Record summary:
Rfam assigns this 120-nucleotide RNA sequence from Caenorhabditis bovis to the family "C. elegans snoRNA ceN33". On this family, see Jia et al., BMC Mol Biol 2007: "Systematic identification of non-coding RNA 2,2,7-trimethylguanosine cap structures in Caenorhabditis elegans". Gene Ontology terms of the family: nucleolus and RNA processing. Pairs were carried over by alignment from the consensus structure. Rfam classes the family as a C/D-box small nucleolar RNA.

RNA sequence: CAAGCCUCUGGUAUUGCUAUUUGCCAGGCGCAAGGCGGGCGAUGAUUGAGACUUUAUCCCAUACGCAAUUUCGUCUGAUUCACCAAUGAAGGCAUAAACUUCCUUGGACGUCUGAGCCGC
Numbered sequence: 001c002a003a004g005c006c007u008c009u010g011g012u013a014u015u016g017c018u019a020u021u022u023g024c025c026a027g028g029c030g031c032a033a034g035g036c037g038g039g040c041g042a043u044g045a046u047u048g049a050g051a052c053u054u055u056a057u058c059c060c061a062u063a064c065g066c067a068a069u070u071u072c073g074u075c076u077g078a079u080u081c082a083c084c085a086a087u088g089a090a091g092g093c094a095u096a097a098a099c100u101u102c103c104u105u106g107g108a109c110g111u112c113u114g115a116g117c118c119g120c
Base pairs, nucleotide, nucleotide: 009119010118011117012116
Taxonomically the source falls in Caenorhabditis (Eukaryota, Opisthokonta, Rhabditina, Rhabditidae).